[Rfam]
RNA: Manganese Mn2+ riboswitch aptamer (yybP-ykoY)
Organism: Bordetella sp. N
RNA sequence: UCACUUUGGGGAGUAGCCUGCUUCCAUCCCCCCGGAAGCGCCCGCGUCAACAUUCUUGGCCCCACGGCCAUGGCGCUGGCAGCCCUCGCGGCUUGGCGAGACCAUGGGUUUCCUUGUGCCUAAGCCGGGCGCACCUGGGAAUCUAUGCGUCGCCCGGCCGAGC
Number, nucleotide and partner (000 for none) at each position: 001u000002c000003a000004c000005u000006u000007u000008g000009g000010g000011g000012a000013g000014u000015a000016g000017c000018c000019u000020g039021c038022u037023u000024c000025c000026a000027u000028c000029c000030c000031c000032c000033c000034g000035g000036a000037a022038g021039c020040g080041c079042c078043c000044g076045c075046g074047u073048c072049a071050a000051c000052a000053u000054u000055c000056u000057u070058g069059g068060c067061c066062c000063c000064a000065c000066g061067g060068c059069c058070a057071u049072g048073g047074c046075g045076c044077u000078g042079g041080c040081a000082g000083c000084c000085c000086u000087c162088g000089c000090g000091g000092c000093u000094u000095g000096g000097c000098g000099a000100g000101a000102c000103c000104a000105u000106g000107g000108g000109u000110u000111u000112c000113c000114u000115u000116g000117u000118g000119c000120c000121u000122a000123a000124g000125c000126c000127g000128g000129g000130c000131g000132c000133a000134c000135c000136u000137g000138g000139g000140a000141a000142u000143c000144u000145a000146u000147g000148c000149g000150u000151c000152g000153c000154c000155c000156g000157g000158c000159c000160g000161a000162g087163c000